[Rfam]
Nucleotides: 512
Base pairs, nucleotide, nucleotide: 006391007390008389011386014383015382016330017329019327020326022324023323024322026320027318028317036313037312040309041308044307045306046305048304049303050302051301056235057234060231061230062229063228065226066225067113068112077105079104080103081102082101085098086097087096088095119224121222122221125218128215129214131212132211133208136205137204142199146197150194151193155191157189158188159187160186162180166176167175237297238296239295242292243291244290245289246288247287251285253283255281256280258279259278260277264271331344332343333342334341353381355379356378357377358376359375363373365371393433394432396430397429398428399427401423403420404419405418407417439478442475444473445472446471450466451465452464453463454462486511487510488509489508490507
Number, partner (000 for none) and nucleotide at each position: 001000u002000c003000u004000u005000c006391a007390c008389c009000g010000u011386g012000a013000c014383c015382g016330g017329c018000c019327a020326g021000a022324u023323g024322g025000c026320g027318u028317c029000g030000c031000g032000g033000u034000c035000g036313g037312u038000g039000a040309g041308c042000a043000u044307g045306g046305c047000g048304u049303c050302g051301c052000c053000g054000a055000a056235g057234u058000a059000g060231u061230c062229g063228c064000c065226g066225u067113c068112g069000c070000c071000g072000a073000g074000u075000a076000u077105g078000c079104c080103g081102a082101g083000u084000u085098u086097g087096g088095u089000g090000g091000a092000u093000u094000c095088g096087c097086c098085g099000u100000a101082u102081u103080c104079g105077c106000c107000g108000g109000u110000a111000c112068c113067g114000a115000u116000c117000u118000u119224g120000c121222u122221g123000a124000g125218u126000u127000u128215g129214c130000c131212g132211u133208g134000c135000a136205c137204g138000a139000u140000c141000a142199g143000c144000a145000u146197c147000a148000g149000c150194u151193g152000a153000u154000c155191g156000a157189u158188c159187g160186g161000a162180u163000u164000g165000c166176c167175g168000a169000a170000u171000u172000c173000g174000g175167c176166g177000a178000g179000u180162a181000c182000c183000g184000u185000c186160c187159c188158g189157g190000g191155c192000u193151c194150g195000a196000g197146g198000u199142c200000g201000c202000g203000c204137u205136g206000g207000a208133u209000g210000a211132a212131u213000u214129g215128c216000c217000c218125g219000g220000c221122c222121a223000u224119c225066g226065c227000c228063g229062c230061g231060a232000g233000g234057a235056u236000c237297u238296c239295c240000u241000c242292g243291u244290c245289g246288u247287c248000g249000a250000g251285c252000u253283c254000g255281c256280g257000c258279a259278g260277c261000g262000c263000c264271g265000g266000c267000a268000a269000u270000u271264c272000c273000u274000g275000c276000a277260g278259u279258u280256c281255g282000a283253g284000c285251g286000g287247g288246a289245u290244g291243a292242c293000a294000u295239g296238g297237g298000c299000g300000u301051g302050c303049g304048a305046g306045c307044c308041g309040u310000c311000g312037a313036u314000g315000a316000c317028g318027a319000a320026u321000u322024c323023c324022a325000c326020c327019u328000c329017g330016c331344c332343g333342u334341u335000g336000c337000c338000c339000a340000c341334g342333g343332u344331g345000u346000g347000g348000g349000u350000g351000a352000g353381g354000c355379g356378g357377c358376g359375g360000u361000u362000g363373a364000c365371c366000c367000g368000g369000u370000a371365g372000a373363u374000a375359c376358c377357g378356c379355c380000c381353u382015c383014g384000a385000c386011c387000u388000g389008g390007g391006u392000c393433c394432a395000c396430g397429g398428c399427a400000g401423c402000a403420u404419g405418c406000g407417g408000g409000u410000c411000a412000g413000c414000c415000a416000g417407c418405g419404c420403g421000a422000g423401g424000a425000u426000a427399u428398g429397c430396c431000c432394u433393g434000c435000a436000u437000c438000u439478g440000g441000g442475g443000u444473u445472c446471g447000g448000a449000u450466u451465u452464g453463g454462u455000g456000g457000u458000g459000u460000g461000g462454g463453c464452c465451a466450g467000u468000u469000g470000a471446u472445g473444g474000g475442c476000g477000g478439c479000g480000g481000c482000g483000g484000u485000g486511g487510a488509c489508a490507g491000g492000g493000a494000u495000u496000u497000a498000c499000g500000g501000u502000c503000g504000u505000g506000g507490u508489u509488g510487u511486c512000g
The family of this 512-nucleotide RNA sequence from Nocardia cerradoensis is "Saccharopolyspora sRNA 350". The base pairs follow the family's consensus structure, which was predicted with RNAfold. The organism belongs to Nocardia, within Bacteria. It scores 117 bits against the family's covariance model.